mir-27 microRNA precursor family: a 79-nucleotide sequence from Sinocyclocheilus anshuiensis.
It scores 73 bits against the family's covariance model.
[Rfam]
RNA sequence: GUGAGGUGCAGAACUUAGCUCACUCUGUGAACAGAUCUCACAUAUCCUAUGUUCACAGUGGCUAAGUUCCGUUCCUCUG
Numbered sequence: 001g002u003g004a005g006g007u008g009c010a011g012a013a014c015u016u017a018g019c020u021c022a023c024u025c026u027g028u029g030a031a032c033a034g035a036u037c038u039c040a041c042a043u044a045u046c047c048u049a050u051g052u053u054c055a056c057a058g059u060g061g062c063u064a065a066g067u068u069c070c071g072u073u074c075c076u077c078u079g
Base pairs, nucleotide, nucleotide: 011069012068013067014066015065016064017063018062019061020060027056028055029054030053031052032051033050